The family of this 141-nucleotide RNA sequence from Pseudoflavitalea sp. G-6-1-2 is "SAM riboswitch aptamer (S box leader)". A search with the family's covariance model found it, with a score of 76 bits.

RNA sequence: AACUUAUCAAGAAAGGCAGAGGGAAACGGGCCCGAUGACGCCUUGACAACCUUCUAUCUUAUGAACAGGCUGGCUGUACCCUGCCUGUAAGCGAGAUAGAAAAGGUGCCAAUUCCUGCCCCAGAUGGGGGAGAGAUAAGUC
Dot-bracket structure: .(((((((....(((((...(((...[[[[)))......)))))(.((.(((((((((((................................)))))))))..)))).)...(]]]]((((.....))))..)))))))).